[Rfam]
RNA sequence: AGCUCAUCCAGAGGGGCAGAGGGACACGGCCCGAUGAAGCCCCGGCAACCCCCCUGAUUCCGGACUCGUUCACGCGAGGCUCCCGGCCAGGGAAGGUGCCAAUUCCGUCUCACGGCGAGGUGCGUCGUGAGGAAGAUGAGGA
Numbered sequence: 001a002g003c004u005c006a007u008c009c010a011g012a013g014g015g016g017c018a019g020a021g022g023g024a025c026a027c028g029g030c031c032c033g034a035u036g037a038a039g040c041c042c043c044g045g046c047a048a049c050c051c052c053c054c055u056g057a058u059u060c061c062g063g064a065c066u067c068g069u070u071c072a073c074g075c076g077a078g079g080c081u082c083c084c085g086g087c088c089a090g091g092g093a094a095g096g097u098g099c100c101a102a103u104u105c106c107g108u109c110u111c112a113c114g115g116c117g118a119g120g121u122g123c124g125u126c127g128u129g130a131g132g133a134a135g136a137u138g139a140g141g142a
Stems, first nucleotide, its partner, number of pairs: 003140006013043005021032003026108004044100004049096002051092003104134001109131009
Shown here is a 142-nucleotide RNA sequence from Streptomyces spinoverrucosus, a member of the family "SAM riboswitch aptamer (S box leader)". Its Rfam clan is "SAM clan".